Pseudomonas sRNA P8: a 78-nucleotide sequence from Pseudomonas aeruginosa. The source organism's lineage runs through Bacteria, Pseudomonadati, Pseudomonadales, Pseudomonas and Pseudomonas aeruginosa. The literature on the family includes a 2006 paper in Nucleic Acids Res by Livny et al., "Identification of 17 Pseudomonas aeruginosa sRNAs and prediction of sRNA-encoding genes in 10 diverse pathogens using the bioinformatic tool sRNAPredict2".
RNA sequence: GAGGCUUCGGCGAAAAUUUGUGCACAAAUGGAAAGCAGCUUGUCAAGGGUUGAGAGCGUUAGGCUCUAAACGCUUGAU
Numbered sequence: 001g002a003g004g005c006u007u008c009g010g011c012g013a014a015a016a017u018u019u020g021u022g023c024a025c026a027a028a029u030g031g032a033a034a035g036c037a038g039c040u041u042g043u044c045a046a047g048g049g050u051u052g053a054g055a056g057c058g059u060u061a062g063g064c065u066c067u068a069a070a071c072g073c074u075u076g077a078u
Base pairs, nucleotide, nucleotide: 002041003040004039005038010036011035016029017028018027019026020025042078043077044076045075046074047073049071050070051069053067054066055065056064057063